[Rfam]
RNA sequence: GCCGCCGACGGGAAUGGGGCUUCCCGAUAACCGCCGGCCGGUGCACGGUCCGGCUGAUGGCGCCUGCUGCCAA
Numbered sequence: 001g002c003c004g005c006c007g008a009c010g011g012g013a014a015u016g017g018g019g020c021u022u023c024c025c026g027a028u029a030a031c032c033g034c035c036g037g038c039c040g041g042u043g044c045a046c047g048g049u050c051c052g053g054c055u056g057a058u059g060g061c062g063c064c065u066g067c068u069g070c071c072a073a
Stems, first nucleotide, its partner, number of pairs: 010025004016064002019061003033054004
RNA: Fluoride riboswitch aptamer (crcB RNA motif)
Organism: Luteimonas sp. FCS-9